Annotation:
Shown here is a 74-nucleotide RNA from Sphenodon punctatus, a member of the family "mir-205 microRNA precursor family". Gene Ontology terms of the family: miRNA-mediated post-transcriptional gene silencing and RISC complex. It scores 70 bits against the family's covariance model. The family has 44 seed sequences and 1,154 matches in Rfam 15.1. Pairs were carried over by alignment from the consensus structure, which was predicted with RNAalifold. NCBI's taxonomy places the organism under Eukaryota, Deuterostomia, Vertebrata, Amniota, Sphenodon.
[Rfam]
RNA sequence: CUCAGGUGCCCUUCAUUCCACCGGAAUCUGUAGAGACAGAAACCAGAUUUCAGUGAGAUGAAGCGCAUUUGAGA
Numbered sequence: 001c002u003c004a005g006g007u008g009c010c011c012u013u014c015a016u017u018c019c020a021c022c023g024g025a026a027u028c029u030g031u032a033g034a035g036a037c038a039g040a041a042a043c044c045a046g047a048u049u050u051c052a053g054u055g056a057g058a059u060g061a062a063g064c065g066c067a068u069u070u071g072a073g074a
Base pairs, nucleotide, nucleotide: 011063012062013061014060015059016058019055020054021053023051024050025049026048028046029045030044